[Rfam]
Shown here is a 115-nucleotide sequence from Rhizobacter koreensis, a member of the family "ZMP/ZTP riboswitch aptamer (pfl RNA motif)".
A search with the family's covariance model found it, with a score of 47 bits.
Lineage of the source: Bacteria > Pseudomonadota > Betaproteobacteria > Sphaerotilaceae > Rhizobacter.
RNA sequence: GCCUCGCUGCGCGACUGGCGAUUGGCCCCACGGGCCUGAGGUGGACGACCACCGGGGAGCGCGGCCGGCGGGGCACGGAGCCUGCGCCGAUCAGCCGUUCGCCUGGGCAGCCCUC
Dot-bracket structure: ..((.(((((((..(([[[[[...................((((....))))..))..))))))).)).......................(.(((..]]]]]..))).).....
Numbered sequence: 001g002c003c004u005c006g007c008u009g010c011g012c013g014a015c016u017g018g019c020g021a022u023u024g025g026c027c028c029c030a031c032g033g034g035c036c037u038g039a040g041g042u043g044g045a046c047g048a049c050c051a052c053c054g055g056g057g058a059g060c061g062c063g064g065c066c067g068g069c070g071g072g073g074c075a076c077g078g079a080g081c082c083u084g085c086g087c088c089g090a091u092c093a094g095c096c097g098u099u100c101g102c103c104u105g106g107g108c109a110g111c112c113c114u115c
Stems, first nucleotide, its partner, number of pairs: 003068002006065007015056002017103005041052004092110001094108003